[Rfam]
RNA sequence: GCUGAACCAGGGCAAACCCGUCGAAAGGCGGCGACGCAAAGUUUCCGGUCUAACGGGUGACAACACCCCAUGACAGCGGGGCCGCCGCU
Numbered sequence: 001g002c003u004g005a006a007c008c009a010g011g012g013c014a015a016a017c018c019c020g021u022c023g024a025a026a027g028g029c030g031g032c033g034a035c036g037c038a039a040a041g042u043u044u045c046c047g048g049u050c051u052a053a054c055g056g057g058u059g060a061c062a063a064c065a066c067c068c069c070a071u072g073a074c075a076g077c078g079g080g081g082c083c084g085c086c087g088c089u
Stems, first nucleotide, its partner, number of pairs: 012037002018031005041082003045079003048074003055068004
Rfam assigns this 89-nucleotide RNA sequence from Methyloversatilis universalis to the family "c-di-GMP-I riboswitch aptamer". The source organism's lineage runs through Bacteria, Pseudomonadota, Nitrosomonadales, Methyloversatilis and Methyloversatilis universalis. Rfam links the family to the GO term cyclic-di-GMP binding. The family's consensus secondary structure is taken from published work.